[Rfam]
mir-8364 microRNA precursor family: a 61-nucleotide sequence from Pristionchus pacificus. The base pairs follow the family's consensus structure, which was predicted with RNAalifold.
RNA sequence: UCUUCAUUCCUCGGACUCUCUCACUGGCCAGAGCGACGAGAUAGUGUGUGAAAUGAAGAGA
Numbered sequence: 001u002c003u004u005c006a007u008u009c010c011u012c013g014g015a016c017u018c019u020c021u022c023a024c025u026g027g028c029c030a031g032a033g034c035g036a037c038g039a040g041a042u043a044g045u046g047u048g049u050g051a052a053a054u055g056a057a058g059a060g061a
Stems, first nucleotide, its partner, number of pairs: 001059007010050001012048002015045003019041004
Gene Ontology terms of the family: miRNA-mediated post-transcriptional gene silencing and RISC complex. The match comes from Rfam's covariance-model search (74 bits). NCBI's taxonomy places the organism under Eukaryota, Eumetazoa, Bilateria, Nematoda, Pristionchus.